About this RNA:
Rfam assigns this 121-nucleotide RNA from Skermanella aerolata to the family "Glycine riboswitch aptamer". It scores 44 bits against the family's covariance model. This family represents the bacterial glycine riboswitch. Glycine riboswitches usually consist of two metabolite-binding aptamers domains with similar structures in tandem. The aptamers cooperatively bind glycine to regulate the expression of downstream genes. In Bacillus subtilis, this riboswitch is found upstream of the gcvT operon which controls glycine degradation. Pairs were carried over by alignment from the consensus structure.
RNA sequence: ACGAUCUGGAGAGAGGCGGCCAUGCCAAAUCAUCAGGCAUGACGACGCCCACCGAAGGGGAAGCUCGACGCUCUAAGGAGCCUCGGGGCAAGCUCUCAGGUACAGAGACAGAUGGGGAAAA
Numbered sequence: 001a002c003g004a005u006c007u008g009g010a011g012a013g014a015g016g017c018g019g020c021c022a023u024g025c026c027a028a029a030u031c032a033u034c035a036g037g038c039a040u041g042a043c044g045a046c047g048c049c050c051a052c053c054g055a056a057g058g059g060g061a062a063g064c065u066c067g068a069c070g071c072u073c074u075a076a077g078g079a080g081c082c083u084c085g086g087g088g089c090a091a092g093c094u095c096u097c098a099g100g101u102a103c104a105g106a107g108a109c110a111g112a113u114g115g116g117g118a119a120a121a
Base pairs, nucleotide, nucleotide: 002115004113005112006111007110008109015049016048017047018046051101052100053099054097055096058095059094060093064088065087